[Rfam]
RNA: Small Cajal body specific RNA 4
RNA sequence: CAUAGAGGAUUAAGAAGGCAGAGCCUGUUGAGCAGGGCUCUGCUGAUACCAUCCUCUUAGAGAAAUGGGGUGGAGAGAGGGGUCCCACUUGCAGAGAUGCAAAGACCUCACUGUUCUAUCCAACAAAA
Numbered sequence: 001c002a003u004a005g006a007g008g009a010u011u012a013a014g015a016a017g018g019c020a021g022a023g024c025c026u027g028u029u030g031a032g033c034a035g036g037g038c039u040c041u042g043c044u045g046a047u048a049c050c051a052u053c054c055u056c057u058u059a060g061a062g063a064a065a066u067g068g069g070g071u072g073g074a075g076a077g078a079g080g081g082g083u084c085c086c087a088c089u090u091g092c093a094g095a096g097a098u099g100c101a102a103a104g105a106c107c108u109c110a111c112u113g114u115u116c117u118a119u120c121c122a123a124c125a126a127a128a
Stems, first nucleotide, its partner, number of pairs: 003059001004057006017044003021040006067121003078112002080109003085104001090101003